Notes
Shown here is a 110-nucleotide RNA from Shewanella oneidensis, a member of the family "TPP riboswitch aptamer (THI element)". It scores 68 bits against the family's covariance model. The organism belongs to Shewanella oneidensis, within Bacteria.
RNA sequence: AGCGCCGCCAAGGGGUGUUUGCCAAAAUUCGGCAGACUGAGAUGUCAUCAGACGAACCCUUAGAACCUGAUCCGGCUAAUACCGGCGUAGGAAUGGGCCAAUCAACAGCA
Numbered sequence: 001a002g003c004g005c006c007g008c009c010a011a012g013g014g015g016u017g018u019u020u021g022c023c024a025a026a027a028u029u030c031g032g033c034a035g036a037c038u039g040a041g042a043u044g045u046c047a048u049c050a051g052a053c054g055a056a057c058c059c060u061u062a063g064a065a066c067c068u069g070a071u072c073c074g075g076c077u078a079a080u081a082c083c084g085g086c087g088u089a090g091g092a093a094u095g096g097g098c099c100a101a102u103c104a105a106c107a108g109c110a
Stems, first nucleotide, its partner, number of pairs: 008096003011060004016054001017037007044053003066091004072085004